About this RNA
Shown here is a 69-nucleotide sequence from Streptosporangium album, a member of the family "ASpks TB sRNA". The source organism's lineage runs through Bacteria, Bacillati, Actinomycetota, Actinomycetes and Streptosporangium. A reference for the family is Arnvig and Young (2009), "Identification of small RNAs in Mycobacterium tuberculosis", Mol Microbiol.
RNA sequence: CUUGAUGGAGCCCAGCCAGAGCGGCCGCUCCCGGUUCUGCCCGUAGGCGGCGAUCAGCGCCUGCGCCUC
Numbered sequence: 001c002u003u004g005a006u007g008g009a010g011c012c013c014a015g016c017c018a019g020a021g022c023g024g025c026c027g028c029u030c031c032c033g034g035u036u037c038u039g040c041c042c043g044u045a046g047g048c049g050g051c052g053a054u055c056a057g058c059g060c061c062u063g064c065g066c067c068u069c
Stems, first nucleotide, its partner, number of pairs: 015025003028065001030063001032059002038053001041050003